The record is a 168-nucleotide RNA from Streptomyces sp. HGB0020, which matches "c-di-AMP riboswitch aptamer (ydaO/yuaA leader)" in Rfam. The organism belongs to Streptomyces, within Bacteria. The base pairs follow the family's consensus structure. The match comes from Rfam's covariance-model search (56 bits).
RNA sequence: GCCCGGUACCCGCACAACUCACCCGUGAACGGCAGGAGCGGGGGACCCACAGGUAUCACCGCCUGUUCCGGUCUCCGGAACGGCUUGGGGUAAAGCCGCGUCAAACGCGCGGCCGGGCAUCUCCAGCUCGCACCCGACAGCUCACCUCGUAGGCGCCGGAGAGGAAUU
Numbered sequence: 001g002c003c004c005g006g007u008a009c010c011c012g013c014a015c016a017a018c019u020c021a022c023c024c025g026u027g028a029a030c031g032g033c034a035g036g037a038g039c040g041g042g043g044g045a046c047c048c049a050c051a052g053g054u055a056u057c058a059c060c061g062c063c064u065g066u067u068c069c070g071g072u073c074u075c076c077g078g079a080a081c082g083g084c085u086u087g088g089g090g091u092a093a094a095g096c097c098g099c100g101u102c103a104a105a106c107g108c109g110c111g112g113c114c115g116g117g118c119a120u121c122u123c124c125a126g127c128u129c130g131c132a133c134c135c136g137a138c139a140g141c142u143c144a145c146c147u148c149g150u151a152g153g154c155g156c157c158g159g160a161g162a163g164g165a166a167u168u
Base pairs, nucleotide, nucleotide: 001154002153003152007037009035038150039149040148041147042146043145048087049086088135089134090133096112097111098110099109115129116128117127118126